[Rfam]
RNA: ZMP/ZTP riboswitch aptamer (pfl RNA motif)
RNA sequence: UCCCUGUGUCGCGACUGGCGCAGGCAAGGUGGAAUCGACCACCGGGGAGCGACACCGAGACCGACCACGAGGACACGGACACCGCGCGCCUGGGUGCCUGGG
Dot-bracket structure: ...(.(((((((..(([[[[[.......((((......))))..))..))))))).)......................((((..]]]]]..))))......